[Rfam]
tRNA: an 85-nucleotide RNA from bacterium 336/3.
RNA sequence: GGAGAGAUGCCUGAGCGGUUAAAGGAGCAGUUUGCUAAACUGUCAUCGGGAGACCGAUGCGUGGGUUCGAAUCCCAUUCUCUCCU
Numbered sequence: 001g002g003a004g005a006g007a008u009g010c011c012u013g014a015g016c017g018g019u020u021a022a023a024g025g026a027g028c029a030g031u032u033u034g035c036u037a038a039a040c041u042g043u044c045a046u047c048g049g050g051a052g053a054c055c056g057a058u059g060c061g062u063g064g065g066u067u068c069g070a071a072u073c074c075c076a077u078u079c080u081c082u083c084c085u
Base pairs, nucleotide, nucleotide: 001084002083003082004081005080006079007078010025011024012023027043028042029041030040031039061077062076063075064074065073